Rfam assigns this 81-nucleotide RNA from Carlito syrichta to the family "Small nucleolar RNA SNORD115".
The organism belongs to Carlito, within Eukaryota.
A reference for the family is Cavaille et al. (2000), "Identification of brain-specific and imprinted small nucleolar RNA genes exhibiting an unusual genomic organization", Proc Natl Acad Sci U S A.
Rfam classes the family as a C/D-box small nucleolar RNA.
It scores 51 bits against the family's covariance model.
RNA sequence: GAGUCAAUGAUGAAAUCUUUGCCUUGUCUCUAGAGAGGUGUUGUGUUAAAAGUCAUGCACAACAGAUUUACGCUGAGGACC
Numbered sequence: 001g002a003g004u005c006a007a008u009g010a011u012g013a014a015a016u017c018u019u020u021g022c023c024u025u026g027u028c029u030c031u032a033g034a035g036a037g038g039u040g041u042u043g044u045g046u047u048a049a050a051a052g053u054c055a056u057g058c059a060c061a062a063c064a065g066a067u068u069u070a071c072g073c074u075g076a077g078g079a080c081c
Stems, first nucleotide, its partner, number of pairs: 001081001004078001005075002008072002